Rfam assigns this 99-nucleotide RNA sequence from Erwinia sorbitola to the family "Guanidine-I riboswitch aptamer". The pairing is the family consensus, mapped onto this sequence. For this family Rfam cites "New RNA motifs suggest an expanded scope for riboswitches in bacterial genetic control" (Barrick et al., Proc Natl Acad Sci U S A, 2004). The source organism's lineage runs through Bacteria, Pseudomonadota, Gammaproteobacteria, Enterobacterales and Erwinia.

RNA sequence: ACAAUAGCAGGCUAGGGUUCCGGUCCACUCGGUGGAUGACUGGUCCGAGAGCUGGCGACCUCGGUUGGGGUUACACGGCGGGAGAAAAGCCCGGGAGAG
Numbered sequence: 001a002c003a004a005u006a007g008c009a010g011g012c013u014a015g016g017g018u019u020c021c022g023g024u025c026c027a028c029u030c031g032g033u034g035g036a037u038g039a040c041u042g043g044u045c046c047g048a049g050a051g052c053u054g055g056c057g058a059c060c061u062c063g064g065u066u067g068g069g070g071u072u073a074c075a076c077g078g079c080g081g082g083a084g085a086a087a088a089g090c091c092c093g094g095g096a097g098a099g
Base pairs, nucleotide, nucleotide: 007056008055010053011052012051015046016045020043021042022040023037024036025035026034027033028032057072058071059070060069061068062067074094076097080092081091082090